[Rfam]
RNA sequence: UGCAGAAAAAGGUAAAACUGUUGAAAAACAGUGACACAAAGUGACGGACCUAAGGGAGUAGAGACCUAUGGUGGCCGCAUUGCCUGU
Numbered sequence: 001u002g003c004a005g006a007a008a009a010a011g012g013u014a015a016a017a018c019u020g021u022u023g024a025a026a027a028a029c030a031g032u033g034a035c036a037c038a039a040a041g042u043g044a045c046g047g048a049c050c051u052a053a054g055g056g057a058g059u060a061g062a063g064a065c066c067u068a069u070g071g072u073g074g075c076c077g078c079a080u081u082g083c084c085u086g087u
Stems, first nucleotide, its partner, number of pairs: 012037002017032006040081004045077003048072003055066002
Rfam assigns this 87-nucleotide RNA sequence from Alkalicoccus halolimnae to the family "c-di-GMP-I riboswitch aptamer". NCBI's taxonomy places the organism under Bacteria, Bacilli, Caryophanales, Bacillaceae, Alkalicoccus.